[Rfam]
RNA sequence: UGUAUCUGUGAUGACCACUUGGCUCCCUCAACAGAAAUCGAAUGAAGAAAAAUGCCAGAAUUGUUACCCAAAAAAUGUCUGAGAUGCA
Dot-bracket structure: ((((((............................................................................))))))
Shown here is an 88-nucleotide RNA from Chiloscyllium punctatum, a member of the family "Small nucleolar RNA SNORD100". NCBI's taxonomy places the organism under Eukaryota, Gnathostomata, Chondrichthyes, Galeomorphii, Chiloscyllium. For this family Rfam cites "RNomics: an experimental approach that identifies 201 candidates for novel, small, non-messenger RNAs in mouse" (Huttenhofer et al., EMBO J, 2001). It is annotated as a C/D-box small nucleolar RNA.